[Rfam]
This 313-nucleotide RNA from Thermoplasmatales archaeon B_DKE belongs to the Rfam family "Archaeal RNase P".
The family is grouped with related families in Rfam's "RNaseP clan".
Ribonuclease P (RNase P) is a ubiquitous endoribonuclease, found in archaea, bacteria and eukarya as well as chloroplasts and mitochondria. Its best characterised activity is the generation of mature 5'-ends of tRNAs by cleaving the 5'-leader elements of precursor-tRNAs. Cellular RNase Ps are ribonucleoproteins. RNA from bacterial RNase Ps retains its catalytic activity in the absence of the protein subunit, i.e. it is a ribozyme. Isolated eukaryotic and archaeal RNase P RNA has not been shown to retain its catalytic function, but is still essential for the catalytic activity of the holoenzyme. Although the archaeal and eukaryotic holoenzymes have a much greater protein content than the bacterial ones, the RNA cores from all the three lineages are homologous -- helices corresponding to P1, P2, P3, P4, and P10/11 are common to all cellular RNase P RNAs. Yet, there is considerable sequence variation, particularly among the eukaryotic RNAs.
The literature on the family includes a 1998 paper in Annu Rev Biochem by Frank and Pace, "Ribonuclease P: unity and diversity in a tRNA processing ribozyme".

RNA sequence: AAAAGCCCGAGGGCAACUUACGCUCGAAAGAGUGAGGAAAGUCCCCCCUCCUCGACAGGUUCCAAUCAACUCAAGUUGAUAUCCCGAGAGGGAUGGUAAAGAGAAAAGAAAUUCACGGUUUCAUGUUAAGAAUGACUCGAAAAGACGACGUUUCAUGAAGAGCCGAUGGGAACUCUCCCUGGAUGGAGCAAGUCUAAAGAGACCCUAUGAGACUGUCGUGAGGGUCAGGUAAGACGCAUGUCCCAAUGGGACAAAAGUCGAAUGUUGCCAACCGUAAAAGCGGCCAACAGAAGGGGGCUUAUUCCGGGCAUUU
Numbered sequence: 001a002a003a004a005g006c007c008c009g010a011g012g013g014c015a016a017c018u019u020a021c022g023c024u025c026g027a028a029a030g031a032g033u034g035a036g037g038a039a040a041g042u043c044c045c046c047c048c049u050c051c052u053c054g055a056c057a058g059g060u061u062c063c064a065a066u067c068a069a070c071u072c073a074a075g076u077u078g079a080u081a082u083c084c085c086g087a088g089a090g091g092g093a094u095g096g097u098a099a100a101g102a103g104a105a106a107a108g109a110a111a112u113u114c115a116c117g118g119u120u121u122c123a124u125g126u127u128a129a130g131a132a133u134g135a136c137u138c139g140a141a142a143a144g145a146c147g148a149c150g151u152u153u154c155a156u157g158a159a160g161a162g163c164c165g166a167u168g169g170g171a172a173c174u175c176u177c178c179c180u181g182g183a184u185g186g187a188g189c190a191a192g193u194c195u196a197a198a199g200a201g202a203c204c205c206u207a208u209g210a211g212a213c214u215g216u217c218g219u220g221a222g223g224g225u226c227a228g229g230u231a232a233g234a235c236g237c238a239u240g241u242c243c244c245a246a247u248g249g250g251a252c253a254a255a256a257g258u259c260g261a262a263u264g265u266u267g268c269c270a271a272c273c274g275u276a277a278a279a280g281c282g283g284c285c286a287a288c289a290g291a292a293g294g295g296g297g298c299u300u301a302u303u304c305c306g307g308g309c310a311u312u313u
Base pairs, nucleotide, nucleotide: 001313002312003311005309006308007307008306009305010303011302012269013268014267015266016265017264021034022033023032024031025030039300040299041298043297044296045295046294047293048188049187050186051185053218054217055216056215057214061183062182063181064180065080066079067078068077069076081094082093083092084091085090095179096178100176101175102174103173116165117164118163119160120159121158122157123156124155125154137145138144192235193234194233195232201226202225203224204223205222